[Rfam]
RNA sequence: CCAGUCGGCCGGACGGCCGCUCCGGUUUCAACGCCGGGGAGGAAAGUCCGGGCUCCAUGGAAGAACGGCGCCGGAUAACGUCCGGCGGGGGCGACCCCAGGGAAAGUGCCACAGAGAGCAGACCGCCGCGGAUGUUCGCAUCUGCGGUAAGGGUGAAAGGGUGCGGUAAGAGCGCACCGCGCUGCCGGUAACGGGAGCGGCACGGCAAACCCCGCCGGGAGCAAAACCGAAUAGGAGCGACAUGCCCCCGCGUUCGCGCGGAGGCGGGCCUUCUUCCAGGUCGUCGCUCGGGUUGGUUGCUAGAGGCGUCCAGCAAUGGGCGUCCCAGAGGAAUGGCCGUCACGCGCAAGGGCUUGGUUCCGCCGGGCUUUUGCGCCAUACAGAACCCGGCUUACAGGCCGACUGGCGCU
Number, nucleotide and partner (000 for none) at each position: 001c406002c405003a404004g403005u402006c401007g400008g399009c398010c397011g395012g341013a340014c339015g338016g337017c336018c335019g000020c039021u038022c037023c036024g035025g034026u033027u000028u000029c000030a000031a000032c000033g026034c025035c024036g023037g022038g021039g020040a000041g000042g000043a000044a393045a392046g391047u000048c390049c389050g388051g387052g386053c221054u220055c219056c218057a000058u000059g000060g000061a000062a000063g275064a274065a000066c217067g216068g215069c214070g213071c085072c084073g083074g082075a081076u000077a000078a000079c000080g000081u075082c074083c073084g072085g071086c100087g098088g097089g096090g095091g000092c000093g000094a000095c090096c089097c088098c087099a000100g086101g212102g211103a000104a000105a000106g210107u209108g206109c205110c204111a000112c000113a000114g000115a000116g000117a000118g000119c000120a000121g000122a000123c152124c151125g148126c147127c146128g145129c144130g143131g142132a141133u140134g000135u000136u000137c000138g000139c000140a133141u132142c131143u130144g129145c128146g127147g126148u125149a000150a000151g124152g123153g000154u000155g000156a000157a000158a000159g000160g178161g177162u176163g175164c174165g173166g000167u000168a000169a000170g000171a000172g000173c165174g164175c163176a162177c161178c160179g201180c199181g198182c197183u196184g000185c194186c193187g192188g000189u000190a000191a000192c187193g186194g185195g000196a183197g182198c181199g180200g000201c179202a000203c000204g110205g109206c108207a000208a000209a107210c106211c102212c101213c070214g069215c068216c067217g066218g056219g055220a054221g053222c000223a000224a000225a298226a297227c296228c295229g000230a000231a000232u000233a000234g000235g289236a288237g287238c286239g285240a284241c000242a000243u000244g000245c000246c000247c000248c000249c000250g000251c000252g000253u000254u000255c000256g000257c000258g000259c000260g000261g000262a000263g000264g000265c000266g000267g000268g282269c000270c280271u279272u278273c000274u064275u063276c000277c000278a272279g271280g270281u000282c268283g000284u240285c239286g238287c237288u236289c235290g000291g000292g000293u000294u000295g228296g227297u226298u225299g000300c000301u000302a000303g000304a000305g324306g323307c322308g321309u320310c319311c318312a317313g000314c000315a000316a000317u312318g311319g310320g309321c308322g307323u306324c305325c000326c000327a000328g000329a000330g000331g000332a000333a000334u000335g018336g017337c016338c015339g014340u013341c012342a000343c000344g000345c000346g000347c000348a000349a000350g000351g000352g000353c000354u000355u000356g000357g000358u000359u000360c000361c000362g000363c000364c000365g000366g000367g000368c000369u000370u000371u000372u000373g000374c000375g000376c000377c000378a000379u000380a000381c000382a000383g000384a000385a000386c052387c051388c050389g049390g048391c046392u045393u044394a000395c011396a000397g010398g009399c008400c007401g006402a005403c004404u003405g002406g001407c000408g000409c000410u000